[Rfam]
RNA sequence: CAGUGAGGGGCACCUCGAGGACUGUCUAACCUGAGAAUGGUGAAACAUCAAGGUCAAUCUCAGGUUCGUCAGCCCAUGAGAUGCCUUC
Numbered sequence: 001c002a003g004u005g006a007g008g009g010g011c012a013c014c015u016c017g018a019g020g021a022c023u024g025u026c027u028a029a030c031c032u033g034a035g036a037a038u039g040g041u042g043a044a045a046c047a048u049c050a051a052g053g054u055c056a057a058u059c060u061c062a063g064g065u066u067c068g069u070c071a072g073c074c075c076a077u078g079a080g081a082u083g084c085c086u087u088c
Stems, first nucleotide, its partner, number of pairs: 007088001008086005014080003019075002022072003026068001028066009038056002
Rfam assigns this 88-nucleotide RNA to the family "mir-1388 microRNA precursor family". The family has 12 seed sequences and 600 matches in Rfam 15.1.